[Rfam]
RNA sequence: UAGAGUAGGUGAAUGGCCGCCCUCUGAAUAUUCAGAGGGAGGAAAGUCCGAGCUCCACAGGACAGGGUGGUCGCUAACAGCGACUGGGGGUGACCCCAAGGAAAGUGCCACAGAAAAUAGACCGCCAGCGGCCCCAUGGAAGUAAUUCCACGGGGUGCGGGUAAGGGUGAAACGGUGAGGUAAGAGCUCACCAGUCUGGGUGGUGACACCCAGAGCUAGGCAAACCCCACCCGGAGCAAGACCAAAUAGGAGGGCAAUCCUGAAAAGGAUAAGGGUGGUCCGCCCGACGCCCUCGGGUAGGUCGCUAGAGGCAUUGAGCAAUCAAUGCCCCAGAGGAAUGGCCAUUACUUGAACAAAGGUGACUUUGUUCAAGGACAGAACUCGGCUUAUAGCCUGCUCUAACUC
Numbered sequence: 001u002a003g004a005g006u007a008g009g010u011g012a013a014u015g016g017c018c019g020c021c022c023u024c025u026g027a028a029u030a031u032u033c034a035g036a037g038g039g040a041g042g043a044a045a046g047u048c049c050g051a052g053c054u055c056c057a058c059a060g061g062a063c064a065g066g067g068u069g070g071u072c073g074c075u076a077a078c079a080g081c082g083a084c085u086g087g088g089g090g091u092g093a094c095c096c097c098a099a100g101g102a103a104a105g106u107g108c109c110a111c112a113g114a115a116a117a118u119a120g121a122c123c124g125c126c127a128g129c130g131g132c133c134c135c136a137u138g139g140a141a142g143u144a145a146u147u148c149c150a151c152g153g154g155g156u157g158c159g160g161g162u163a164a165g166g167g168u169g170a171a172a173c174g175g176u177g178a179g180g181u182a183a184g185a186g187c188u189c190a191c192c193a194g195u196c197u198g199g200g201u202g203g204u205g206a207c208a209c210c211c212a213g214a215g216c217u218a219g220g221c222a223a224a225c226c227c228c229a230c231c232c233g234g235a236g237c238a239a240g241a242c243c244a245a246a247u248a249g250g251a252g253g254g255c256a257a258u259c260c261u262g263a264a265a266a267g268g269a270u271a272a273g274g275g276u277g278g279u280c281c282g283c284c285c286g287a288c289g290c291c292c293u294c295g296g297g298u299a300g301g302u303c304g305c306u307a308g309a310g311g312c313a314u315u316g317a318g319c320a321a322u323c324a325a326u327g328c329c330c331c332a333g334a335g336g337a338a339u340g341g342c343c344a345u346u347a348c349u350u351g352a353a354c355a356a357a358g359g360u361g362a363c364u365u366u367g368u369u370c371a372a373g374g375a376c377a378g379a380a381c382u383c384g385g386c387u388u389a390u391a392g393c394c395u396g397c398u399c400u401a402a403c404u405c
Base pairs, nucleotide, nucleotide: 001401002400003399004398005397006396007395008394009393010392011390012346013345014344015343016342017341018340020039021038022037023036024035025034026033027032044388045387046386048385049384050383051382052381053236054235055234056233060281061280062279063278065232066231067230068229069228070084071083072082073081074080085099086097087096088095089094100227101226105225106224107221108220109219122166123165124162125161126160128158129157130156132154133153134152174192175191176190177189178188179187194216195214196213197212198211199210200209201208202207240303241302242301243300250294251293252292253291254290255289273285274284275283276282310329311328312327313326314325315324316323317322

Shown here is a 405-nucleotide sequence from Candidatus Desulfofervidus auxilii, a member of the family "Bacterial RNase P class A". By type it is a ribozyme. Rfam describes the family as follows. Ribonuclease P (RNase P) is a ubiquitous endoribonuclease, found in archaea, bacteria and eukarya as well as chloroplasts and mitochondria.